[Rfam]
Background: The family of this 361-nucleotide part of an RNA from Krasilnikoviella flava is "Bacterial large subunit ribosomal RNA". Rfam links the family to the GO terms ribosome and structural constituent of ribosome.

RNA sequence: CGAGCGAAUCGUGGUUAAGGAACUCGGCAAAAUGCCCCCGUAACUUCGGGAGAAGGGGGGCCCCAACCGUGAACCGGACUUGCUCCGGGGAGGCGGGGAGGGCCGCAGAGACCAGGGAGAAGCGACUGUUUACUAAAAACACAGGUCCGUGCGAAGUCGCAAGACGAUGUAUACGGACUGACGCCUGCCCGGUGCUGGAAGGUUAAGAGGACGGGUCAACUUCGGUGAAGCCCAGAAUUUAAGCCCCAGUAAACGGCGGUGGUAACUAUAACCAUCCUAAGGUAGCGAAAUUCCUUGUCGGGUAAGUUCCGACCUGCACGAAUGGCGUAACGACUUCUCCGCUGUCUCAACCGCGAGCUCG
Numbered sequence: 001c002g003a004g005c006g007a008a009u010c011g012u013g014g015u016u017a018a019g020g021a022a023c024u025c026g027g028c029a030a031a032a033u034g035c036c037c038c039c040g041u042a043a044c045u046u047c048g049g050g051a052g053a054a055g056g057g058g059g060g061c062c063c064c065a066a067c068c069g070u071g072a073a074c075c076g077g078a079c080u081u082g083c084u085c086c087g088g089g090g091a092g093g094c095g096g097g098g099a100g101g102g103c104c105g106c107a108g109a110g111a112c113c114a115g116g117g118a119g120a121a122g123c124g125a126c127u128g129u130u131u132a133c134u135a136a137a138a139a140c141a142c143a144g145g146u147c148c149g150u151g152c153g154a155a156g157u158c159g160c161a162a163g164a165c166g167a168u169g170u171a172u173a174c175g176g177a178c179u180g181a182c183g184c185c186u187g188c189c190c191g192g193u194g195c196u197g198g199a200a201g202g203u204u205a206a207g208a209g210g211a212c213g214g215g216u217c218a219a220c221u222u223c224g225g226u227g228a229a230g231c232c233c234a235g236a237a238u239u240u241a242a243g244c245c246c247c248a249g250u251a252a253a254c255g256g257c258g259g260u261g262g263u264a265a266c267u268a269u270a271a272c273c274a275u276c277c278u279a280a281g282g283u284a285g286c287g288a289a290a291u292u293c294c295u296u297g298u299c300g301g302g303u304a305a306g307u308u309c310c311g312a313c314c315u316g317c318a319c320g321a322a323u324g325g326c327g328u329a330a331c332g333a334c335u336u337c338u339c340c341g342c343u344g345u346c347u348c349a350a351c352c353g354c355g356a357g358c359u360c361g
Base pairs, nucleotide, nucleotide: 001361002360003359004358009356010355011354012353013352014351015350016349018347019346020345035059036058037057038056039055044049060103061102062101063100074088075087076086077085078084104108116340117339118338119337120336121335122334123332124331127141128140129139144179145178146177147176148175149174150173151172152169156165157164158163182327183326184325185324187257188256189255192254193253194250195249196248197247198246201245202244203243207239208238213233214232215231216230219226220225258276259275260274261273262272263271277281287314297313298312299311300310301309302308
It scores 2766 bits against the family's covariance model. Clan: LSU clan.